RNA sequence: GACCCGAUCCGGGCCCCUCUGGCGCAGGCCUCGCUGGCUCUUGUGCGAUGUCGGAUCAGACGC
Numbered sequence: 001g002a003c004c005c006g007a008u009c010c011g012g013g014c015c016c017c018u019c020u021g022g023c024g025c026a027g028g029c030c031u032c033g034c035u036g037g038c039u040c041u042u043g044u045g046c047g048a049u050g051u052c053g054g055a056u057c058a059g060a061c062g063c
Stems, first nucleotide, its partner, number of pairs: 006057007022046007
RNA: terC RNA
Organism: Acetobacteraceae bacterium AT-5844